[Rfam]
RNA sequence: GCGAUUACUUAACCUGUUUUUCUUUAGCUUCUUUUUUAUGUCACCUUAACGGGGGCUAUUCGUUACGCGAGAAAUAAGCUAAAGACGAACAGACAGCCUCCUUCCCGGGAGGCUUUUUUGUA
Numbered sequence: 001g002c003g004a005u006u007a008c009u010u011a012a013c014c015u016g017u018u019u020u021u022c023u024u025u026a027g028c029u030u031c032u033u034u035u036u037u038a039u040g041u042c043a044c045c046u047u048a049a050c051g052g053g054g055g056c057u058a059u060u061c062g063u064u065a066c067g068c069g070a071g072a073a074a075u076a077a078g079c080u081a082a083a084g085a086c087g088a089a090c091a092g093a094c095a096g097c098c099u100c101c102u103u104c105c106c107g108g109g110a111g112g113c114u115u116u117u118u119u120g121u122a
Base pairs, nucleotide, nucleotide: 016090017089018088019087021085022084023083024082025081026080027079028078029077030076032074033073034072036070037069039067042053044052045051054064055063056062093116095114096113097112098111099110100109101108102107

Shown here is a 122-nucleotide sequence from Photobacterium proteolyticum, a member of the family "Phenylalanine leader peptide".
The source organism's lineage runs through Bacteria, Pseudomonadati, Pseudomonadota, Gammaproteobacteria and Photobacterium.
By type it is a cis-regulatory leader.
The family has 71 seed sequences and 379 matches in Rfam 15.1.
Gene Ontology term of the family: cellular amino acid metabolic process.
A search with the family's covariance model found it, with a score of 76 bits.